[Rfam]
RNA sequence: GUGGGCGGUCUGCGGCUUCGGACAUAUGUCUGAGGAAGUUCUGUCCAUGGGGCUGGGACCGUAGCUCCUCUGGAGCCUGGCGAAAGUCAGGGUAAAGCACAGAAACAACACGGCCACUACCCGAUGAGAAUGAGACAGCCCAUCUGUCGAUGAGCGUGGUGGAAGCGGUGAAAAGCUCCCUUACGGUCAUGCAAGACCAAAUGUUGCCAAUGAAUCCCCAGCCAGAGGCAGAGGUAGGUCGCUCAGUGGAAUGCCGCAGGUGAUCUCCAGAUCACAUACAGAAGACAGGCUAUAGACCGCCCAC
Numbered sequence: 001g002u003g004g005g006c007g008g009u010c011u012g013c014g015g016c017u018u019c020g021g022a023c024a025u026a027u028g029u030c031u032g033a034g035g036a037a038g039u040u041c042u043g044u045c046c047a048u049g050g051g052g053c054u055g056g057g058a059c060c061g062u063a064g065c066u067c068c069u070c071u072g073g074a075g076c077c078u079g080g081c082g083a084a085a086g087u088c089a090g091g092g093u094a095a096a097g098c099a100c101a102g103a104a105a106c107a108a109c110a111c112g113g114c115c116a117c118u119a120c121c122c123g124a125u126g127a128g129a130a131u132g133a134g135a136c137a138g139c140c141c142a143u144c145u146g147u148c149g150a151u152g153a154g155c156g157u158g159g160u161g162g163a164a165g166c167g168g169u170g171a172a173a174a175g176c177u178c179c180c181u182u183a184c185g186g187u188c189a190u191g192c193a194a195g196a197c198c199a200a201a202u203g204u205u206g207c208c209a210a211u212g213a214a215u216c217c218c219c220a221g222c223c224a225g226a227g228g229c230a231g232a233g234g235u236a237g238g239u240c241g242c243u244c245a246g247u248g249g250a251a252u253g254c255c256g257c258a259g260g261u262g263a264u265c266u267c268c269a270g271a272u273c274a275c276a277u278a279c280a281g282a283a284g285a286c287a288g289g290c291u292a293u294a295g296a297c298c299g300c301c302c303a304c
Stems, first nucleotide, its partner, number of pairs: 001304010011258006019032005037291003041288005046191004051223006059186005064076005077090005091181002097176002111167002114162007132144002195240004204231005
RNA: Archaeal RNase P
Organism: Theionarchaea archaeon